[Rfam]
RNA: mir-301 microRNA precursor family
RNA sequence: UGGGGUCCUCUGCCUUGACGACGUUGCACUACUGUUCCAAAAGCCCAAGCAGUGCAACAGUAUUGUCAUAGCAUAGGGCCUCAGG
Numbered sequence: 001u002g003g004g005g006u007c008c009u010c011u012g013c014c015u016u017g018a019c020g021a022c023g024u025u026g027c028a029c030u031a032c033u034g035u036u037c038c039a040a041a042a043g044c045c046c047a048a049g050c051a052g053u054g055c056a057a058c059a060g061u062a063u064u065g066u067c068a069u070a071g072c073a074u075a076g077g078g079c080c081u082c083a084g085g
Base pairs, nucleotide, nucleotide: 002082003081004080007077008076009075011073012072013071016068017067018066019065023058024057025056026055027054028053029052030051